RNA sequence: GUGAAUAUUGGGCAAACCUAUUGAAAAGUAGGGACGCAAAGCUAAGGGUCUAAGGAUAAGAUUAUCUAUGAUUGCCACGCCGCCGUA
Numbered sequence: 001g002u003g004a005a006u007a008u009u010g011g012g013c014a015a016a017c018c019u020a021u022u023g024a025a026a027a028g029u030a031g032g033g034a035c036g037c038a039a040a041g042c043u044a045a046g047g048g049u050c051u052a053a054g055g056a057u058a059a060g061a062u063u064a065u066c067u068a069u070g071a072u073u074g075c076c077a078c079g080c081c082g083c084c085g086u087a
Stems, first nucleotide, its partner, number of pairs: 012037002017032006041080002046076002048072003055066004
The family of this 87-nucleotide RNA from Propionispora sp. 2/2-37 is "c-di-GMP-I riboswitch aptamer". Rfam links the family to the GO term cyclic-di-GMP binding. Clan: c-di-GMP_I riboswitch clan.